The record is a 63-nucleotide RNA from Marmota monax, which matches "U7 small nuclear RNA" in Rfam.
Pairs were carried over by alignment from the consensus structure, which was predicted with PFOLD.
NCBI's taxonomy places the organism under Eukaryota, Eumetazoa, Sarcopterygii, Euarchontoglires, Marmota.
It scores 41 bits against the family's covariance model.
RNA sequence: UAGUGGGGCAGCUCUUUCAGGAAUUUGUUUAGCAGGUUUUUCAGUUCUUUCUGGAAGACCCCC
Numbered sequence: 001u002a003g004u005g006g007g008g009c010a011g012c013u014c015u016u017u018c019a020g021g022a023a024u025u026u027g028u029u030u031a032g033c034a035g036g037u038u039u040u041u042c043a044g045u046u047c048u049u050u051c052u053g054g055a056a057g058a059c060c061c062c063c
Stems, first nucleotide, its partner, number of pairs: 035060010